[Rfam]
RNA: Small nucleolar RNA R30/Z108
Organism: Camellia sinensis
RNA sequence: AGAGAUUGCGAUGAGGAUAAAAAGCUCCCUCUUCGGAAAUCUAAAGUUGAGGAUGAAUUGCUGGCAGAAUCGAGCUACUACUUUUUAAGCCACCCCUGAGUAA
Numbered sequence: 001a002g003a004g005a006u007u008g009c010g011a012u013g014a015g016g017a018u019a020a021a022a023a024g025c026u027c028c029c030u031c032u033u034c035g036g037a038a039a040u041c042u043a044a045a046g047u048u049g050a051g052g053a054u055g056a057a058u059u060g061c062u063g064g065c066a067g068a069a070u071c072g073a074g075c076u077a078c079u080a081c082u083u084u085u086u087a088a089g090c091c092a093c094c095c096c097u098g099a100g101u102a103a
Base pairs, nucleotide, nucleotide: 006103007102008101009100
Dot-bracket structure: .....((((..........................................................................................))))